[Rfam]
RNA sequence: AGAAUGAAAGGGCAAACUCUCCGAAAGGUGAGGGCGCAAAGCUACGAACCUACUGCGUCAAAUACGCAAUGGUAGUCGGGUUGCCAAG
Number, nucleotide and partner (000 for none) at each position: 001a000002g000003a000004a000005u000006g000007a000008a000009a000010g000011g000012g037013c036014a000015a000016a000017c032018u031019c030020u000021c028022c027023g000024a000025a000026a000027g022028g021029u000030g019031a018032g017033g000034g000035c000036g013037c012038a000039a000040a082041g081042c080043u079044a000045c078046g077047a076048a073049c072050c071051u000052a000053c000054u000055g067056c066057g065058u064059c000060a000061a000062a000063u000064a058065c057066g056067c055068a000069a000070u000071g050072g049073u048074a000075g000076u047077c046078g045079g043080g042081u041082u040083g000084c000085c000086a000087a000088g000
Shown here is an 88-nucleotide RNA sequence from Atribacter laminatus, a member of the family "c-di-GMP-I riboswitch aptamer".
About the family: GEMM was predicted in a large-scale screen for bacterial structured RNA regulatory elements. Genes associated with GEMM are involved in a diverse array of functions, including chemotaxis regulation, signal transduction, secretion and chitin.
NCBI's taxonomy places the organism under Bacteria, Atribacterota, Atribacterales, Atribacteraceae, Atribacter.
The family's consensus secondary structure is taken from published work.
On this family, see Weinberg et al., Nucleic Acids Res 2007: "Identification of 22 candidate structured RNAs in bacteria using the CMfinder comparative genomics pipeline".
A search with the family's covariance model found it, with a score of 77 bits.